[Rfam]
Record summary
This 52-nucleotide RNA sequence from Rhodobacter sp. 24-YEA-8 belongs to the Rfam family "serC leader". The family's RNA type in Rfam is cis-regulatory leader. From the family's description: This family is a putative regulatory RNA structure that is found upstream of the serC-serA operon in some alpha-proteobacteria. For this family Rfam cites "Evidence for a second class of S-adenosylmethionine riboswitches and other regulatory RNA motifs in alpha-proteobacteria" (Corbino et al., Genome Biol, 2005). A search with the family's covariance model found it, with a score of 72 bits. The source organism's lineage runs through Bacteria, Pseudomonadati, Alphaproteobacteria, Rhodobacterales and Rhodobacter.

RNA sequence: CGGUGGGACACCUCUCCCCAACGAGAGGCAUUUAUCUGCAAGGAUACCAGAU
Numbered sequence: 001c002g003g004u005g006g007g008a009c010a011c012c013u014c015u016c017c018c019c020a021a022c023g024a025g026a027g028g029c030a031u032u033u034a035u036c037u038g039c040a041a042g043g044a045u046a047c048c049a050g051a052u
Stems, first nucleotide, its partner, number of pairs: 011028006033046005